[Rfam]
RNA sequence: UUGGCAGAUGAUGAGAAGUAAAGACAAUUGCAUCUGAUGUGCUCCUAGUUCAUGGGGGCACAAUGGCAUGAUGACUUUGUCUAGGGGAAUCUCUGAUGCUAA
Numbered sequence: 001u002u003g004g005c006a007g008a009u010g011a012u013g014a015g016a017a018g019u020a021a022a023g024a025c026a027a028u029u030g031c032a033u034c035u036g037a038u039g040u041g042c043u044c045c046u047a048g049u050u051c052a053u054g055g056g057g058g059c060a061c062a063a064u065g066g067c068a069u070g071a072u073g074a075c076u077u078u079g080u081c082u083a084g085g086g087g088a089a090u091c092u093c094u095g096a097u098g099c100u101a102a
Stems, first nucleotide, its partner, number of pairs: 002101005